[Rfam]
Notes:
The family of this 86-nucleotide sequence from Actinomadura chibensis is "ZMP/ZTP riboswitch aptamer (pfl RNA motif)". Rfam links the family to the GO terms regulation of purine nucleotide biosynthetic process and one-carbon metabolic process.

RNA sequence: GGGUGCUCACGCGACUGGCGCGGUCAAGGUGGGGCACCACCGGGGAGCGAACCACAGUCCGUACACCGCGCGCCUGGGUGGAGGAC
Numbered sequence: 001g002g003g004u005g006c007u008c009a010c011g012c013g014a015c016u017g018g019c020g021c022g023g024u025c026a027a028g029g030u031g032g033g034g035c036a037c038c039a040c041c042g043g044g045g046a047g048c049g050a051a052c053c054a055c056a057g058u059c060c061g062u063a064c065a066c067c068g069c070g071c072g073c074c075u076g077g078g079u080g081g082a083g084g085a086c
Base pairs, nucleotide, nucleotide: 003055004054005053007051010049011048012047015044016043017074018073019072020071021070029040030039031038032037064080065079066078067077